[Rfam]
RNA sequence: CUUCACCGAUCCAAGCCACAGUGGACGCUCCCGACCCUGCCCAUACGUGGCCAACAACGCCUGCGCCUC
Numbered sequence: 001c002u003u004c005a006c007c008g009a010u011c012c013a014a015g016c017c018a019c020a021g022u023g024g025a026c027g028c029u030c031c032c033g034a035c036c037c038u039g040c041c042c043a044u045a046c047g048u049g050g051c052c053a054a055c056a057a058c059g060c061c062u063g064c065g066c067c068u069c
Base pairs, nucleotide, nucleotide: 016024017023028065030063032059033058038053039052041050042049043048
The family of this 69-nucleotide RNA sequence from Phytohabitans flavus is "ASpks TB sRNA". It scores 66 bits against the family's covariance model. The source organism's lineage runs through Bacteria, Bacillati, Actinomycetota, Actinomycetes and Phytohabitans.